A member of the RNA family "Small nucleolar RNA snoR27" from Castanea mollissima, 92 nucleotides long. For this family Rfam cites "Multiple snoRNA gene clusters from Arabidopsis" (Brown et al., RNA, 2001). By type it is a C/D-box small nucleolar RNA. Clan: snR68 clan. Rfam 15.1 lists 649 matches to the family in 212 species. The base pairs follow the family's consensus structure, which was predicted with WAR. A search with the family's covariance model found it, with a score of 75 bits. The organism belongs to Castanea, within Eukaryota. Gene Ontology terms of the family: nucleolus and RNA processing.
RNA sequence: AAUGGAUCACUGAUGUUAGUAAAAAACUGCGUUAUCUUUCUGCAAUUUCCGUAGAGGGAUUGAAGAUAAUUAUAAUUUACCUGAGAUCCUCU
Numbered sequence: 001a002a003u004g005g006a007u008c009a010c011u012g013a014u015g016u017u018a019g020u021a022a023a024a025a026a027c028u029g030c031g032u033u034a035u036c037u038u039u040c041u042g043c044a045a046u047u048u049c050c051g052u053a054g055a056g057g058g059a060u061u062g063a064a065g066a067u068a069a070u071u072a073u074a075a076u077u078u079a080c081c082u083g084a085g086a087u088c089c090u091c092u
Base pairs, nucleotide, nucleotide: 001092004089005088006087007086